The record is a 116-nucleotide sequence from Medicago truncatula, which matches "Small nucleolar RNA Z278" in Rfam. Rfam links the family to the GO terms RNA processing and nucleolus. By type it is a C/D-box small nucleolar RNA. NCBI's taxonomy places the organism under Eukaryota, Magnoliopsida, Mesangiospermae, Fabaceae, Medicago. Rfam describes the family as follows. snoZ278 is a C/D box small nucleolar RNA. Its methylation guide targets have not been reported. It scores 65 bits against the family's covariance model.
RNA sequence: GCUUAUGAUGAUAUAAUCCAAUUUUUUUGAGGUGUUGUGGAGCCAAGCCCCUGUUUACAGGGAGAACCUACUUGGUGAAGCUUCAUUCAUAUGACUUCAUUGGAUUUCACUGAGGC
Numbered sequence: 001g002c003u004u005a006u007g008a009u010g011a012u013a014u015a016a017u018c019c020a021a022u023u024u025u026u027u028u029g030a031g032g033u034g035u036u037g038u039g040g041a042g043c044c045a046a047g048c049c050c051c052u053g054u055u056u057a058c059a060g061g062g063a064g065a066a067c068c069u070a071c072u073u074g075g076u077g078a079a080g081c082u083u084c085a086u087u088c089a090u091a092u093g094a095c096u097u098c099a100u101u102g103g104a105u106u107u108c109a110c111u112g113a114g115g116c
Base pairs, nucleotide, nucleotide: 001116002115003114049062050061051060052059053058